Rfam assigns this 212-nucleotide RNA sequence from Chara braunii to the family "U2 spliceosomal RNA". A reference for the family is Thomas et al. (1990), "The spliceosomal snRNAs of Caenorhabditis elegans", Nucleic Acids Res. Lineage of the source: Eukaryota > Viridiplantae > Charophyceae > Charales > Chara. Clan: U2 clan. Rfam 15.1 lists 71,512 matches to the family in 2,642 species.
RNA sequence: AUACCUUUCUCGGCCUUUUGGCUAAGUAAGAUCAAGUGCAGUGUAUCUGUUCUGAUCACUUUAAUAUCUGAUCCGUGGUCCAUCGGGCCACAUGAUAUUAAAUUAUUUUUUCAGGGCUAUGGAGGGGUCACAGGGGUAGGCUUGCCUGCUCGACCCUUCCAGGGUUGCCUUCGUGUUUGCACUGCAGCGAAGCGUGGCGCGGCCCACUCCCC
Numbered sequence: 001a002u003a004c005c006u007u008u009c010u011c012g013g014c015c016u017u018u019u020g021g022c023u024a025a026g027u028a029a030g031a032u033c034a035a036g037u038g039c040a041g042u043g044u045a046u047c048u049g050u051u052c053u054g055a056u057c058a059c060u061u062u063a064a065u066a067u068c069u070g071a072u073c074c075g076u077g078g079u080c081c082a083u084c085g086g087g088c089c090a091c092a093u094g095a096u097a098u099u100a101a102a103u104u105a106u107u108u109u110u111u112c113a114g115g116g117c118u119a120u121g122g123a124g125g126g127g128u129c130a131c132a133g134g135g136g137u138a139g140g141c142u143u144g145c146c147u148g149c150u151c152g153a154c155c156c157u158u159c160c161a162g163g164g165u166u167g168c169c170u171u172c173g174u175g176u177u178u179g180c181a182c183u184g185c186a187g188c189g190a191a192g193c194g195u196g197g198c199g200c201g202g203c204c205c206a207c208u209c210c211c212c
Stems, first nucleotide, its partner, number of pairs: 008031003012023004054073005075091007122159008137148004162205006169197002172194003